This 149-nucleotide RNA sequence from Brucella anthropi belongs to the Rfam family "Alphaproteobacterial sRNA ar7". Pairs were carried over by alignment from the consensus structure. The literature on the family includes a 2012 paper in RNA Biol by del Val et al., "A survey of sRNA families in alpha-proteobacteria".
RNA sequence: CAUCGACAGUUCGUCGGUCGCCGGUUUUCUGACCCGUCCCCCGUUGGAUGCCGGAUGCUAGCGGUAGCCUCAUUCCCCUCUCCGGGCUACCGCUUUGAGUGUAGUGACAUGGCCGUUGCGGUACCCCCUCACCGUAACGGCCAAUUCAU
Numbered sequence: 001c002a003u004c005g006a007c008a009g010u011u012c013g014u015c016g017g018u019c020g021c022c023g024g025u026u027u028u029c030u031g032a033c034c035c036g037u038c039c040c041c042c043g044u045u046g047g048a049u050g051c052c053g054g055a056u057g058c059u060a061g062c063g064g065u066a067g068c069c070u071c072a073u074u075c076c077c078c079u080c081u082c083c084g085g086g087c088u089a090c091c092g093c094u095u096u097g098a099g100u101g102u103a104g105u106g107a108c109a110u111g112g113c114c115g116u117u118g119c120g121g122u123a124c125c126c127c128c129u130c131a132c133c134g135u136a137a138c139g140g141c142c143a144a145u146u147c148a149u
Stems, first nucleotide, its partner, number of pairs: 021054005031045003060094010107145001110143012